This 96-nucleotide RNA from Clostridium niameyense belongs to the Rfam family "Guanidine-I riboswitch aptamer".

RNA sequence: AUUUAAGUUUUCUAGGGUUCCGCAGUUUAUAACUGGCAGGUACAAGAGAAAACACACAGUUGAGUGUGUACAUGGAAGGAUAAAAGCUUGGGAGAU
Numbered sequence: 001a002u003u004u005a006a007g008u009u010u011u012c013u014a015g016g017g018u019u020c021c022g023c024a025g026u027u028u029a030u031a032a033c034u035g036g037c038a039g040g041u042a043c044a045a046g047a048g049a050a051a052a053c054a055c056a057c058a059g060u061u062g063a064g065u066g067u068g069u070a071c072a073u074g075g076a077a078g079g080a081u082a083a084a085a086g087c088u089u090g091g092g093a094g095a096u
Stems, first nucleotide, its partner, number of pairs: 007053006015043001020040002022037001023035005054069005071091001073094001077089003
Dot-bracket structure: ......((((((..(....((((((((...))))).).))..)....))))))(((((......))))).(.[...(((.......))).)..]..
Rfam's curators write: This family represents a conserved RNA structure found upstream of the ykkC and yxkD genes in Bacillus subtilis and related genes in other bacteria.